[Rfam]
RNA sequence: UUGGAAGUAUAAGUAUGUCCCAUGAGACAUUUGGGACAUACUUACACUAAAA
Numbered sequence: 001u002u003g004g005a006a007g008u009a010u011a012a013g014u015a016u017g018u019c020c021c022a023u024g025a026g027a028c029a030u031u032u033g034g035g036a037c038a039u040a041c042u043u044a045c046a047c048u049a050a051a052a
Base pairs, nucleotide, nucleotide: 006048007047008046010044011043012042014040015039016038018036019035020034021033022031
RNA: mir-1302 microRNA precursor family